[Rfam]
RNA sequence: GAAGCGUCAACCCGGCACCACCCAGGCGGGUAAGACCGGGACCGUCCCACCGCCAGGCGGGACUGCC
Numbered sequence: 001g002a003a004g005c006g007u008c009a010a011c012c013c014g015g016c017a018c019c020a021c022c023c024a025g026g027c028g029g030g031u032a033a034g035a036c037c038g039g040g041a042c043c044g045u046c047c048c049a050c051c052g053c054c055a056g057g058c059g060g061g062a063c064u065g066c067c
Stems, first nucleotide, its partner, number of pairs: 011040005018029002021026001044063005050057002
RNA: Transposase-2 RNA